Description: Bacteroides-1 RNA: an 82-nucleotide RNA from Jilunia laotingensis. The family's consensus secondary structure is taken from published work. The organism belongs to Jilunia, within Bacteria. The family's RNA type in Rfam is small RNA.

RNA sequence: UAGCAAUUCUGCCUGACGCCUCUUGUGUCUGUGUGAACAGAUAGGUUUGGUACUUAUACCUCCCCGGUAUAGACAGGUUUAA
Numbered sequence: 001u002a003g004c005a006a007u008u009c010u011g012c013c014u015g016a017c018g019c020c021u022c023u024u025g026u027g028u029c030u031g032u033g034u035g036a037a038c039a040g041a042u043a044g045g046u047u048u049g050g051u052a053c054u055u056a057u058a059c060c061u062c063c064c065c066g067g068u069a070u071a072g073a074c075a076g077g078u079u080u081a082a
Stems, first nucleotide, its partner, number of pairs: 018051003024045001026043002029040004054072007
Dot-bracket structure: .................(((...(.((.((((....)))).)).)...)))..(((((((.....)))))))..........